Small nucleolar RNA SNORA13: a 135-nucleotide RNA from Maylandia zebra.
Rfam 15.1 lists 1,034 matches to the family in 605 species.
ACA13 is a member of the H/ACA class of snoRNA that guide the sites of modification of uridines to pseudouridines.

[Rfam]
RNA sequence: UGCCUUUAUGUGUUGCCCAUUCGUUGCUUUCUACAAUGAAUGCGGCGUCAAAUAAGGCAGACAGUAAUUCUUGGAUCGGCCUUAGCGAGGUACCCCUCCGGUGACCUCGUCCUAAGUUCUAUACCAAGUACAAAA
Number, nucleotide and partner (000 for none) at each position: 001u000002g058003c057004c056005u055006u054007u000008a000009u000010g000011u050012g049013u000014u047015g046016c045017c044018c042019a041020u040021u039022c038023g037024u036025u035026g000027c000028u000029u000030u000031c000032u000033a000034c000035a025036a024037u023038g022039a021040a020041u019042g018043c000044g017045g016046c015047g014048u000049c012050a011051a000052a000053u000054a006055a005056g004057g003058c002059a000060g000061a000062c000063a000064g000065u000066a000067a000068u000069u000070c128071u127072u126073g125074g000075a122076u121077c000078g119079g118080c000081c000082u000083u000084a117085g000086c000087g000088a113089g112090g110091u109092a000093c000094c000095c000096c000097u000098c000099c000100g000101g000102u000103g000104a000105c000106c000107u000108c000109g091110u090111c000112c089113u088114a000115a000116g000117u084118u079119c078120u000121a076122u075123a000124c000125c073126a072127a071128g070129u000130a000131c000132a000133a000134a000135a000
It is annotated as an H/ACA-box small nucleolar RNA. Taxonomically the source falls in Maylandia zebra complex (Eukaryota, Deuterostomia, Ctenosquamata, Euacanthomorphacea).